NiCo (Nickel/Cobalt) riboswitch aptamer: an 81-nucleotide sequence.
The base pairs follow the family's consensus structure, which is taken from published work.
Its family is annotated with cobalt ion binding and metal ion homeostasis in the Gene Ontology.
A reference for the family is Furukawa et al. (2015), "Bacterial riboswitches cooperatively bind Ni(2+) or Co(2+) ions and control expression of heavy metal transporters", Mol Cell.
It is one of the family's seed sequences.
[Rfam]
RNA sequence: ACAGUACAAACUGAGCAGGCCGGGGAUUUCCUGGGGCCGGGUCGUAAAUGACAGUGGAUCGAAGACAUCUGCGGGACAGUA
Numbered sequence: 001a002c003a004g005u006a007c008a009a010a011c012u013g014a015g016c017a018g019g020c021c022g023g024g025g026a027u028u029u030c031c032u033g034g035g036g037c038c039g040g041g042u043c044g045u046a047a048a049u050g051a052c053a054g055u056g057g058a059u060c061g062a063a064g065a066c067a068u069c070u071g072c073g074g075g076a077c078a079g080u081a
Base pairs, nucleotide, nucleotide: 010080011079012078013077016075018038019037020036021035022032023031024030025029041052042051043050044049054072055071056070057069058068059067